[Rfam]
RNA sequence: UGACCCUGGAAAUCCAGAGUGGGUGGGGCCUGUGUGACCCUCUAGGCGACCCACUCUUGCUUUCCAGGGCUG
Number, nucleotide and partner (000 for none) at each position: 001u000002g071003a000004c069005c068006c067007u066008g000009g064010a063011a062012a061013u000014c059015c000016a057017g056018a000019g000020u000021g052022g051023g050024u049025g000026g000027g000028g047029c046030c045031u044032g000033u000034g000035u000036g000037a000038c000039c000040c000041u000042c000043u000044a031045g030046g029047c028048g000049a024050c023051c022052c021053a000054c000055u000056c017057u016058u000059g014060c000061u012062u011063u010064c009065c000066a007067g006068g005069g004070c000071u002072g000

Rfam assigns this 72-nucleotide RNA from Aotus nancymaae to the family "mir-551 microRNA precursor family". Rfam 15.1 lists 1,097 matches to the family in 627 species. Its family is annotated with RISC complex and miRNA-mediated post-transcriptional gene silencing in the Gene Ontology. The match comes from Rfam's covariance-model search (68 bits).